[Rfam]
RNA sequence: UAUUUCCUUCGGGGUCGGGUGAAAAUCCCAACCGGCGGUGAUGUGGCCAUAGCAGCCCUAAGCCCGUGACCCGUUUCCACAGUGUAAACAGAGGAAACGGUGGAUUCGGUGAGAAACCGAAGCCGACAGUAUAGUCUGGAUGGGAGAAGGAAACG
Numbered sequence: 001u002a003u004u005u006c007c008u009u010c011g012g013g014g015u016c017g018g019g020u021g022a023a024a025a026u027c028c029c030a031a032c033c034g035g036c037g038g039u040g041a042u043g044u045g046g047c048c049a050u051a052g053c054a055g056c057c058c059u060a061a062g063c064c065c066g067u068g069a070c071c072c073g074u075u076u077c078c079a080c081a082g083u084g085u086a087a088a089c090a091g092a093g094g095a096a097a098c099g100g101u102g103g104a105u106u107c108g109g110u111g112a113g114a115a116a117c118c119g120a121a122g123c124c125g126a127c128a129g130u131a132u133a134g135u136c137u138g139g140a141u142g143g144g145a146g147a148a149g150g151a152a153a154c155g
Stems, first nucleotide, its partner, number of pairs: 003153008017029003031135002033125002035067004062123002071100007105121005127138003
The record is a 155-nucleotide RNA sequence from Alteribacter keqinensis, which matches "FMN riboswitch aptamer (RFN element)" in Rfam. NCBI's taxonomy places the organism under Bacteria, Bacillati, Bacillota, Bacillaceae, Alteribacter. From the family's description: The RFN element is a highly conserved domain that is found frequently in the 5'-untranslated regions of prokaryotic mRNAs that encode for flavin mononucleotide (FMN) biosynthesis and transport proteins.